[Rfam]
RNA: Purine riboswitch aptamer
Nucleotides: 100
Stems, first nucleotide, its partner, number of pairs: 020084006029049006058076005
Number, partner (000 for none) and nucleotide at each position: 001000a002000a003000a004000u005000u006000u007000u008000u009000u010000a011000u012000a013000a014000g015000c016000u017000c018000c019000g020084u021083a022082u023081g024080u025079a026000u027000a028000a029049c030048c031047u032046c033045a034044a035000u036000a037000a038000u039000a040000u041000g042000g043000u044034u045033u046032g047031a048030g049029g050000g051000u052000c053000u054000c055000u056000a057000c058076c059075a060074g061073g062072a063000a064000c065000c066000g067000u068000a069000a070000c071000a072062u073061c074060c075059u076058g077000a078000c079025u080024a081023c082022a083021u084020a085000a086000u087000u088000c089000a090000a091000u092000u093000g094000u095000a096000g097000u098000c099000g100000g